[Rfam]
Background:
The family of this 130-nucleotide sequence from Nordella sp. HKS 07 is "Alphaproteobacterial sRNA ar45". On this family, see del Val et al., RNA Biol 2012: "A survey of sRNA families in alpha-proteobacteria". The organism belongs to Nordella, within Bacteria.
RNA sequence: GCCCAAAGUCGCACGUGCCUGUGGGCGUCCCCCGGAUCCUCAAGAAGGUCUCCGGGAUGGUACAUACGGACAUGAUCCGUAUGCGGUCGAAGACCGCGGACGCCUUGAAGCAACGACGGUGCGGGCUUUU
Numbered sequence: 001g002c003c004c005a006a007a008g009u010c011g012c013a014c015g016u017g018c019c020u021g022u023g024g025g026c027g028u029c030c031c032c033c034g035g036a037u038c039c040u041c042a043a044g045a046a047g048g049u050c051u052c053c054g055g056g057a058u059g060g061u062a063c064a065u066a067c068g069g070a071c072a073u074g075a076u077c078c079g080u081a082u083g084c085g086g087u088c089g090a091a092g093a094c095c096g097c098g099g100a101c102g103c104c105u106u107g108a109a110g111c112a113a114c115g116a117c118g119g120u121g122c123g124g125g126c127u128u129u130u
Stems, first nucleotide, its partner, number of pairs: 001126004008117004016112003023105008031056005037048002040045001064082005083097004